[Rfam]
RNA sequence: AUAAAAAAAUCCCACAGGGUAAUUUCCCUGUGGGGUCAAUGCACAUCUAUCGUGCAUUAACGGAAAAUGGGAGAGGAGAAACCGGAGGAAGAGCUUAUGGGGAAACGUAAGUCUUCUCCGCGG
Numbered sequence: 001a002u003a004a005a006a007a008a009a010u011c012c013c014a015c016a017g018g019g020u021a022a023u024u025u026c027c028c029u030g031u032g033g034g035g036u037c038a039a040u041g042c043a044c045a046u047c048u049a050u051c052g053u054g055c056a057u058u059a060a061c062g063g064a065a066a067a068u069g070g071g072a073g074a075g076g077a078g079a080a081a082c083c084g085g086a087g088g089a090a091g092a093g094c095u096u097a098u099g100g101g102g103a104a105a106c107g108u109a110a111g112u113c114u115u116c117u118c119c120g121c122g123g
Stems, first nucleotide, its partner, number of pairs: 011034009042071001044069003083120004088116004093112005
The record is a 123-nucleotide RNA from Tepidibacillus fermentans, which matches "ylbH leader" in Rfam. For this family Rfam cites "New RNA motifs suggest an expanded scope for riboswitches in bacterial genetic control" (Barrick et al., Proc Natl Acad Sci U S A, 2004). The pairing is the family consensus, mapped onto this sequence. Rfam describes the family as follows. This family is a putative regulatory RNA structure that is found upstream of the ylbH gene in B. subtilis and related low GC Gram-positive bacteria. Gene Ontology term of the family: regulation of gene expression.